[Rfam]
Nucleotides: 087
Stems, first nucleotide, its partner, number of pairs: 007036005013030003018026002037072009046062001048060004
Number, partner (000 for none) and nucleotide at each position: 001000u002000c003000g004000u005000a006000a007036g008035u009034c010033g011032g012000c013030g014029c015028a016000u017000g018026g019025c020000a021000c022000u023000c024000g025019g026018c027000c028015u029014g030013c031000a032011u033010c034009g035008a036007c037072g038071a039070g040069c041068u042067u043066c044065g045064u046062g047000c048060g049059u050058c051057c052000c053000c054000u055000a056000u057051g058050g059049a060048u061000a062046u063000g064045g065044c066043g067042a068041a069040g070039u071038u072037u073000c074000a075000c076000c077000a078000g079000a080000a081000a082000a083000a084000g085000g086000a087000a